[Rfam]
RNA: mir-9243 microRNA precursor family
RNA sequence: CCAUGCACGAAUUCAUGCACCAGGCCUCUAGUGUGUAUAUAUAUACACACACACUAGAGGCCCGGUGCAUGGAAUUCGUGCAUGGGA
Numbered sequence: 001c002c003a004u005g006c007a008c009g010a011a012u013u014c015a016u017g018c019a020c021c022a023g024g025c026c027u028c029u030a031g032u033g034u035g036u037a038u039a040u041a042u043a044u045a046c047a048c049a050c051a052c053a054c055u056a057g058a059g060g061c062c063c064g065g066u067g068c069a070u071g072g073a074a075u076u077c078g079u080g081c082a083u084g085g086g087a
Stems, first nucleotide, its partner, number of pairs: 001085002004082008012073003016069006023062012